[Rfam]
RNA: Small nucleolar RNA SNORD125
Organism: Rattus norvegicus
RNA sequence: AACCGUGGCAGCCCCUCCUGAUGAUUCCUCUUCCUGAGUGUCUCCAGUGAUGAGCAAACUGAGCCUCUAAGAAACUGACUAAAGGGGCAGCUUCCUC
Numbered sequence: 001a002a003c004c005g006u007g008g009c010a011g012c013c014c015c016u017c018c019u020g021a022u023g024a025u026u027c028c029u030c031u032u033c034c035u036g037a038g039u040g041u042c043u044c045c046a047g048u049g050a051u052g053a054g055c056a057a058a059c060u061g062a063g064c065c066u067c068u069a070a071g072a073a074a075c076u077g078a079c080u081a082a083a084g085g086g087g088c089a090g091c092u093u094c095c096u097c
Base pairs, nucleotide, nucleotide: 007092008091009090011088012087013086014085015084